[Rfam]
RNA sequence: UCAAGCCGUUAAGGCUUCAUUUACCUUCACAGGUGCUUACUGGGGCCAUCCAGUGAUCUGGAUUCUUACCGAGUGGUUGGAGCCACUUUGUUUGACGCCUCCCUGUUAAACUCCUGAGAGCCGCCUCAUCCGCGGCUCUUUUUUU
Numbered sequence: 001u002c003a004a005g006c007c008g009u010u011a012a013g014g015c016u017u018c019a020u021u022u023a024c025c026u027u028c029a030c031a032g033g034u035g036c037u038u039a040c041u042g043g044g045g046c047c048a049u050c051c052a053g054u055g056a057u058c059u060g061g062a063u064u065c066u067u068a069c070c071g072a073g074u075g076g077u078u079g080g081a082g083c084c085a086c087u088u089u090g091u092u093u094g095a096c097g098c099c100u101c102c103c104u105g106u107u108a109a110a111c112u113c114c115u116g117a118g119a120g121c122c123g124c125c126u127c128a129u130c131c132g133c134g135g136c137u138c139u140u141u142u143u144u145u
Base pairs, nucleotide, nucleotide: 001044002043004041005015006014022035023034024033025032026031048063049062050061051060071088072087073086074085075084076083094107095106096105097104116140117139118138119137120136121135122134123133124132